[Rfam]
RNA sequence: CUGGCCCCCGGUUCACGUCACUCGCACGAGCGGCGACCCGGCGGCU
Numbered sequence: 001c002u003g004g005c006c007c008c009c010g011g012u013u014c015a016c017g018u019c020a021c022u023c024g025c026a027c028g029a030g031c032g033g034c035g036a037c038c039c040g041g042c043g044g045c046u
Base pairs, nucleotide, nucleotide: 003046004045006044008041009040010039011038016035017034018033019032021030022029023028

L31-Actinobacteria ribosomal protein leader: a 46-nucleotide RNA sequence from Miniimonas arenae. Taxonomically the source falls in Miniimonas (Bacteria, Actinomycetota, Actinomycetes, Micrococcales). Pairs were carried over by alignment from the consensus structure, which is taken from published work.